[Rfam]
RNA sequence: GUGUUCCUCAGAAUUCCUCCGAACACUUCAUUAAGGGGUCGGAUUAUACUGGCAAUUAACUCUUACUGAAGUGUUUGGGGGAACUCCCAGGUUCAU
Number, nucleotide and partner (000 for none) at each position: 001g000002u000003g000004u000005u000006c091007c090008u089009c000010a000011g086012a085013a000014u083015u082016c081017c080018u079019c078020c077021g000022a076023a075024c073025a072026c071027u070028u069029c068030a067031u000032u065033a064034a063035g062036g000037g000038g000039u000040c000041g000042g000043a000044u000045u000046a000047u000048a000049c000050u000051g000052g000053c000054a000055a000056u000057u000058a000059a000060c000061u000062c035063u034064u033065a032066c000067u030068g029069a028070a027071g026072u025073g024074u000075u023076u022077g020078g019079g018080g017081g016082a015083a014084c000085u012086c011087c000088c000089a008090g007091g006092u000093u000094c000095a000096u000
This 96-nucleotide sequence from Chenopodium quinoa belongs to the Rfam family "mir-395 microRNA precursor family". Gene Ontology terms of the family: miRNA-mediated post-transcriptional gene silencing and RISC complex. The family's consensus secondary structure was predicted with PFOLD. Rfam describes the family as follows. mir-395 was identified in both Arabidopsis thaliana and Oryza sativa computationally and was later experimentally verified. mir-395 is thought to target mRNAs coding for ATP sulphurylases. The mature sequence is excised from the 3' arm of the hairpin. NCBI's taxonomy places the organism under Eukaryota, Tracheophyta, eudicotyledons, Atripliceae, Chenopodium.